The record is a 99-nucleotide RNA sequence from Frigoribacterium sp. RIT-PI-h, which matches "mraW RNA" in Rfam.
Taxonomically the source falls in Frigoribacterium (Bacteria, Actinomycetota, Actinomycetes, Microbacteriaceae).
It is annotated as a cis-regulatory element.
Nucleotides: 099
Base pairs, nucleotide, nucleotide: 010086012084013083014082015081016080018078019077021075022074023073024072025071027069028068029067030066031065033062035060036059037058038057039056040055041054042053
Number, partner (000 for none) and nucleotide at each position: 001000u002000c003000u004000a005000g006000c007000c008000c009000g010086u011000g012084g013083g014082c015081c016080c017000c018078g019077a020000c021075c022074c023073u024072c025071a026000g027069c028068c029067g030066u031065c032000a033062g034000c035060c036059c037058u038057g039056g040055c041054g042053c043000a044000c045000c046000u047000u048000c049000c050000c051000c052000g053042g054041u055040g056039c057038c058037a059036g060035g061000u062033c063000c064000c065031g066030a067029c068028g069027g070000a071025u072024g073023g074022g075021g076000a077019u078018c079000a080016g081015g082014g083013c084012c085000g086010a087000c088000g089000a090000g091000c092000g093000c094000a095000g096000c097000c098000c099000g
A search with the family's covariance model found it, with a score of 59 bits.